[Rfam]
The family of this 111-nucleotide RNA from Dokdonella sp. is "Xanthomonadaceae sRNA sX13".
The literature on the family includes a 2011 paper in Nucleic Acids Res by Schmidtke et al., "Genome-wide transcriptome analysis of the plant pathogen Xanthomonas identifies sRNAs with putative virulence functions".
RNA sequence: AACGGCGCCCUGGUUCACUCACCUCCCUGAGUGCAACCCCGCGAAGGCCGGUCCCUCCCCAGACCGGUUUUCACCGCCCCGAGGGCUCCCCCUGGCCCUCGGGGCAUUUUA
Numbered sequence: 001a002a003c004g005g006c007g008c009c010c011u012g013g014u015u016c017a018c019u020c021a022c023c024u025c026c027c028u029g030a031g032u033g034c035a036a037c038c039c040c041g042c043g044a045a046g047g048c049c050g051g052u053c054c055c056u057c058c059c060c061a062g063a064c065c066g067g068u069u070u071u072c073a074c075c076g077c078c079c080c081g082a083g084g085g086c087u088c089c090c091c092c093u094g095g096c097c098c099u100c101g102g103g104g105c106a107u108u109u110u111a
Base pairs, nucleotide, nucleotide: 004009012038013037014036015035016033017032018031019030043072044071045070046069047068048067049066050065051064052063053062076105077104078103079102080101081100082099084097085096086095
Rfam classes the family as a small RNA. NCBI's taxonomy places the organism under Bacteria, Pseudomonadati, Pseudomonadota, Rhodanobacteraceae, Dokdonella.